The record is a 154-nucleotide RNA from Vulcaniibacterium thermophilum, which matches "FMN riboswitch aptamer (RFN element)" in Rfam.
Lineage of the source: Bacteria > Pseudomonadati > Pseudomonadota > Gammaproteobacteria > Vulcaniibacterium.
Gene Ontology term of the family: FMN binding.
[Rfam]
RNA sequence: UGACGUCUUCAGGGCGGGGUGGAAGUCCCCACCGGCGGUAGGUGCGCACCGCGCACGAGCCCGCGAGCGCCCGCCGUGCCCCCGCACGGCGGGGUCAGCAGAUCCGGUCGAACGCCGGAGCCGACGGUCACAGUCCGGAAGGAAGAAGACGGCG
Numbered sequence: 001u002g003a004c005g006u007c008u009u010c011a012g013g014g015c016g017g018g019g020u021g022g023a024a025g026u027c028c029c030c031a032c033c034g035g036c037g038g039u040a041g042g043u044g045c046g047c048a049c050c051g052c053g054c055a056c057g058a059g060c061c062c063g064c065g066a067g068c069g070c071c072c073g074c075c076g077u078g079c080c081c082c083c084g085c086a087c088g089g090c091g092g093g094g095u096c097a098g099c100a101g102a103u104c105c106g107g108u109c110g111a112a113c114g115c116c117g118g119a120g121c122c123g124a125c126g127g128u129c130a131c132a133g134u135c136c137g138g139a140a141g142g143a144a145g146a147a148g149a150c151g152g153c154g
Base pairs, nucleotide, nucleotide: 004151005150006149007148008147009146010145017029018028019027031134032133033123034122035064036063037062038061059121060120067099068098103119104118105117106116107115125137126136127135
Dot-bracket structure: ...(((((((......(((.......))).[[((((((....................[[))))..((.............................))...(((((.......)))))]])).(((.....]]))).......)))))))...